[Rfam]
Source information
This 91-nucleotide RNA from Aegilops tauschii belongs to the Rfam family "small nucleolar RNA snoR126". The family's consensus secondary structure was predicted with RNAalifold. The family's RNA type in Rfam is C/D-box small nucleolar RNA. NCBI's taxonomy places the organism under Eukaryota, Spermatophyta, Triticodae, Triticinae, Aegilops tauschii. A reference for the family is Chen and Wu (2009), "Mining small RNA sequencing data: a new approach to identify small nucleolar RNAs in Arabidopsis", Nucleic Acids Res.

RNA sequence: UGGCUGUGAUGACAAUAAGAUAGCUUCUUCAUAUCUUAAUUUCAGUUAAGGACCAAAUCCGAUGACUUUAUUUUUUGCGUGUCUGAGCCGG
Numbered sequence: 001u002g003g004c005u006g007u008g009a010u011g012a013c014a015a016u017a018a019g020a021u022a023g024c025u026u027c028u029u030c031a032u033a034u035c036u037u038a039a040u041u042u043c044a045g046u047u048a049a050g051g052a053c054c055a056a057a058u059c060c061g062a063u064g065a066c067u068u069u070a071u072u073u074u075u076u077g078c079g080u081g082u083c084u085g086a087g088c089c090g091g
Base pairs, nucleotide, nucleotide: 001090002089003088004087